The record is a 67-nucleotide RNA from Bacillus sp. NRRL B-14911, which matches "Bacillaceae-1 RNA" in Rfam.
Lineage of the source: Bacteria > Bacillati > Bacillota > Bacilli > Bacillus.
Rfam 15.1 lists 5,721 matches to the family in 247 species.
RNA sequence: CAACGAGGAACGCAGGCUAAGGGCGCCACGUCCUGUGGCAACGCCUGCAUGACCCGCAUACUGCGGG
Numbered sequence: 001c002a003a004c005g006a007g008g009a010a011c012g013c014a015g016g017c018u019a020a021g022g023g024c025g026c027c028a029c030g031u032c033c034u035g036u037g038g039c040a041a042c043g044c045c046u047g048c049a050u051g052a053c054c055c056g057c058a059u060a061c062u063g064c065g066g067g
Stems, first nucleotide, its partner, number of pairs: 012048006025039005053067005
The family's RNA type in Rfam is small RNA.